[Rfam]
RNA: SAM (S-adenosyl methionine) riboswitch aptamer
Organism: Thermasporomyces composti
RNA sequence: UGUCGUCGGUGCGAGGCCCCGAAAGCCCCGGCUCGCUGGCCGGCAACCCUCCUCCGCGGUGGGGUGCUCCGGGUGAGGACCAGGCGUGCCACGUGGCACCGCAAGCGCGGACC
Numbered sequence: 001u002g003u004c005g006u007c008g009g010u011g012c013g014a015g016g017c018c019c020c021g022a023a024a025g026c027c028c029c030g031g032c033u034c035g036c037u038g039g040c041c042g043g044c045a046a047c048c049c050u051c052c053u054c055c056g057c058g059g060u061g062g063g064g065u066g067c068u069c070c071g072g073g074u075g076a077g078g079a080c081c082a083g084g085c086g087u088g089c090c091a092c093g094u095g096g097c098a099c100c101g102c103a104a105g106c107g108c109g110g111a112c113c
Stems, first nucleotide, its partner, number of pairs: 002080003009041001011040002014037002024033002042068003047064003051059002084102003087098004